[Rfam]
RNA sequence: UUGGGGUGAGGUAGUAGGUUGUAUAGUUUGAGGGUUUAACCCUUGCUGUCAGAUAACUAUACAACUUACUGUCUUUCCCGA
Number, nucleotide and partner (000 for none) at each position: 001u081002u080003g079004g078005g077006g076007u000008g075009a074010g073011g072012u071013a070014g069015u068016a067017g066018g065019u064020u063021g062022u061023a060024u059025a058026g057027u056028u000029u000030g000031a000032g042033g041034g040035u039036u000037u000038a000039a035040c034041c033042c032043u000044u000045g000046c000047u000048g000049u000050c000051a000052g000053a000054u000055a000056a027057c026058u025059a024060u023061a022062c021063a020064a019065c018066u017067u016068a015069c014070u013071g012072u011073c010074u009075u008076u006077c005078c004079c003080g002081a001